[Rfam]
RNA sequence: GUCCGAGACACGGGGUGCCGCAACCAGCGGCUGAGAUCACACCCGUCGAACCUGCUCGAGCUCGUACUCGCGAAGGGAUCGUCCAUGCGCACACCA
Number, nucleotide and partner (000 for none) at each position: 001g000002u000003c000004c000005g000006a000007g083008a082009c081010a000011c045012g044013g043014g042015g000016u039017g031018c030019c029020g028021c027022a000023a000024c000025c000026a000027g021028c020029g019030g018031c017032u000033g000034a000035g000036a000037u000038c000039a016040c000041a000042c014043c013044c012045g011046u000047c000048g000049a000050a000051c076052c075053u074054g000055c000056u000057c070058g069059a068060g067061c000062u000063c000064g000065u000066a000067c060068u059069c058070g057071c000072g000073a000074a053075g052076g051077g000078a000079u000080c000081g009082u008083c007084c000085a000086u000087g000088c000089g000090c000091a000092c000093a000094c000095c000096a000
A member of the RNA family "TPP riboswitch aptamer (THI element)" from Curtobacterium sp. ISL-83, 96 nucleotides long. The match comes from Rfam's covariance-model search (61 bits). Pairs were carried over by alignment from the consensus structure, which is taken from published work.